[Rfam]
RNA sequence: UGACUCUGUCUGGGGUGCCAUUGAUUUGGCUGAGAGAUACCCACAUAACCUGAUCUAGUUAGGACUAGCGGAGGGAGACAGCUUAAUUUGGCG
Numbered sequence: 001u002g003a004c005u006c007u008g009u010c011u012g013g014g015g016u017g018c019c020a021u022u023g024a025u026u027u028g029g030c031u032g033a034g035a036g037a038u039a040c041c042c043a044c045a046u047a048a049c050c051u052g053a054u055c056u057a058g059u060u061a062g063g064a065c066u067a068g069c070g071g072a073g074g075g076a077g078a079c080a081g082c083u084u085a086a087u088u089u090g091g092c093g
Base pairs, nucleotide, nucleotide: 006081007080008079009078010077011043012042013041014040016037017030018029019028020027049074050073051072055068056067057066058065

This 93-nucleotide RNA from Limosilactobacillus mucosae belongs to the Rfam family "TPP riboswitch aptamer (THI element)". The family's consensus secondary structure is taken from published work.